About this RNA:
The record is a 73-nucleotide sequence from Enterovirga aerilata, which matches "Makes More Granules Regulator RNA (mmgR)" in Rfam. For this family Rfam cites "Expression of the Sinorhizobium meliloti small RNA gene mmgR is controlled by the nitrogen source" (Ceizel Borella et al., FEMS Microbiol Lett, 2016).
RNA sequence: CAUUGCUGCCCUCCUUGGGCGUUUCCUCCCUAGACUUGGGCCGCGCUCGACGCGGCCCUUUUUCUUUGCGUCA
Number, nucleotide and partner (000 for none) at each position: 001c000002a000003u000004u000005g000006c000007u000008g020009c019010c018011c017012u000013c000014c000015u000016u000017g011018g010019g009020c008021g000022u000023u000024u000025c000026c000027u000028c000029c000030c000031u000032a000033g000034a000035c000036u000037u000038g058039g057040g056041c055042c054043g053044c052045g051046c000047u000048c000049g000050a000051c045052g044053c043054g042055g041056c040057c039058c038059u000060u000061u000062u000063u000064c000065u000066u000067u000068g000069c000070g000071u000072c000073a000